[Rfam]
RNA sequence: GAGCUGUGAUGAGUAUUGCGCUCUCGUAAUGAAUUGGGUCAUCACAACCUUCUGAUAUUCGGAUGUGAAGUGUGAUCCGCGCUGCUGAGCUU
Numbered sequence: 001g002a003g004c005u006g007u008g009a010u011g012a013g014u015a016u017u018g019c020g021c022u023c024u025c026g027u028a029a030u031g032a033a034u035u036g037g038g039u040c041a042u043c044a045c046a047a048c049c050u051u052c053u054g055a056u057a058u059u060c061g062g063a064u065g066u067g068a069a070g071u072g073u074g075a076u077c078c079g080c081g082c083u084g085c086u087g088a089g090c091u092u
Stems, first nucleotide, its partner, number of pairs: 001092004
Shown here is a 92-nucleotide RNA from Gossypium raimondii, a member of the family "small nucleolar RNA snoR114". The literature on the family includes a 2009 paper in Nucleic Acids Res by Chen and Wu, "Mining small RNA sequencing data: a new approach to identify small nucleolar RNAs in Arabidopsis". Rfam 15.1 lists 1,645 matches to the family in 183 species. Rfam links the family to the GO terms nucleolus and RNA processing. A search with the family's covariance model found it, with a score of 55 bits. The family's RNA type in Rfam is C/D-box small nucleolar RNA.